[Rfam]
RNA sequence: CGCCGGGCACGGGCGUAAAACGGUGCGGCGCACGGGGAUGCAACCCCCGAUACCAAAGCGUA
Numbered sequence: 001c002g003c004c005g006g007g008c009a010c011g012g013g014c015g016u017a018a019a020a021c022g023g024u025g026c027g028g029c030g031c032a033c034g035g036g037g038a039u040g041c042a043a044c045c046c047c048c049g050a051u052a053c054c055a056a057a058g059c060g061u062a
Stems, first nucleotide, its partner, number of pairs: 001015004007026004034048004

Rfam assigns this 62-nucleotide sequence to the family "GP20-b RNA".
Rfam's curators put it in the seed alignment.